Small nucleolar RNA SNORD60: an 83-nucleotide RNA from Otolemur garnettii. The source organism's lineage runs through Eukaryota, Dipnotetrapodomorpha, Euarchontoglires, Primates and Otolemur. Its Rfam clan is "SNORD60 clan".

RNA sequence: AGCCUAUGAUGAAUUGCUGUAAUUUCUGACACCUCGUAUGAAAGCUGCACGUGCAGCCUGAUUAUUUUGCAACACUGAGGCUU
Numbered sequence: 001a002g003c004c005u006a007u008g009a010u011g012a013a014u015u016g017c018u019g020u021a022a023u024u025u026c027u028g029a030c031a032c033c034u035c036g037u038a039u040g041a042a043a044g045c046u047g048c049a050c051g052u053g054c055a056g057c058c059u060g061a062u063u064a065u066u067u068u069g070c071a072a073c074a075c076u077g078a079g080g081c082u083u
Base pairs, nucleotide, nucleotide: 001082002081003080004079044057045056046055047054048053